[Rfam]
RNA: SAM (S-adenosyl methionine) riboswitch aptamer
RNA sequence: GGUCAUGAGUUCCAGCGUCAAGCCCCGGCUCGCUGGGCGGCAACCCUCCUCGCGGUGGGGUGCCCCGGGUGAUGACCGGGCCGAGCUGGGCACCGUGGAUCCAGUCGGCAAGCGCGAAGG
Numbered sequence: 001g002g003u004c005a006u007g008a009g010u011u012c013c014a015g016c017g018u019c020a021a022g023c024c025c026c027g028g029c030u031c032g033c034u035g036g037g038c039g040g041c042a043a044c045c046c047u048c049c050u051c052g053c054g055g056u057g058g059g060g061u062g063c064c065c066c067g068g069g070u071g072a073u074g075a076c077c078g079g080g081c082c083g084a085g086c087u088g089g090g091c092a093c094c095g096u097g098g099a100u101c102c103a104g105u106c107g108g109c110a111a112g113c114g115c116g117a118a119g120g
Base pairs, nucleotide, nucleotide: 001077002076003075004074009038011037012036013035014034015033016032021030022029039064040063041062044060045059046058048055049054080109081108082107083106084105086104087103088102089101090100